The family of this 195-nucleotide RNA from Paenibacillus lutrae is "c-di-AMP riboswitch aptamer (ydaO/yuaA leader)".
[Rfam]
RNA sequence: AAGUUUUAAACGCUGAGUUUCCGUAACAGGGAAACGGGGGAACCGCUGUCAAGGUCGGCUCAAUUCUGAACCGAUACAACAGAACAAUUUGGGGUGAAUCUCAAUGGCAGGCGCAGGCAGCGUCGCCGGCGAGUAGGGCAGCUCUCAGGGCCCGAAUCCGUCAGCUAACCUCGUAAGCGUACCGGGAGAGGUAAC
Numbered sequence: 001a002a003g004u005u006u007u008a009a010a011c012g013c014u015g016a017g018u019u020u021c022c023g024u025a026a027c028a029g030g031g032a033a034a035c036g037g038g039g040g041a042a043c044c045g046c047u048g049u050c051a052a053g054g055u056c057g058g059c060u061c062a063a064u065u066c067u068g069a070a071c072c073g074a075u076a077c078a079a080c081a082g083a084a085c086a087a088u089u090u091g092g093g094g095u096g097a098a099u100c101u102c103a104a105u106g107g108c109a110g111g112c113g114c115a116g117g118c119a120g121c122g123u124c125g126c127c128g129g130c131g132a133g134u135a136g137g138g139c140a141g142c143u144c145u146c147a148g149g150g151c152c153c154g155a156a157u158c159c160g161u162c163a164g165c166u167a168a169c170c171u172c173g174u175a176a177g178c179g180u181a182c183c184g185g186g187a188g189a190g191g192u193a194a195c
Stems, first nucleotide, its partner, number of pairs: 011179004018033005034174006044091002092159003100133003136153004